[Rfam]
Nucleotides: 093
Base pairs, nucleotide, nucleotide: 001093002092003091004090005089006088007087013026014025015024016023017022029045030044031043032042033041048067049066050065051064052063070084071083072082073081
Number, partner (000 for none) and nucleotide at each position: 001093g002092g003091a004090a005089g006088c007087g008000u009000u010000u011000g012000c013026u014025g015024g016023u017022c018000u019000g020000g021000u022017g023016a024015c025014c026013g027000c028000c029045u030044c031043g032042g033041u034000c035000u036000u037000c038000a039000a040000a041033a042032c043031c044030g045029a046000u047000g048067a049066a050065g051064c052063g053000u054000c055000c056000g057000a058000a059000a060000c061000g062000a063052u064051g065050c066049u067048u068000g069000g070084u071083g072082g073081g074000u075000u076000c077000g078000a079000u080000u081073c082072c083071c084070a085000u086000c087007c088006g089005c090004u091003u092002c093001c
Rfam assigns this 93-nucleotide RNA from Stieleria marina to the family "Selenocysteine transfer RNA".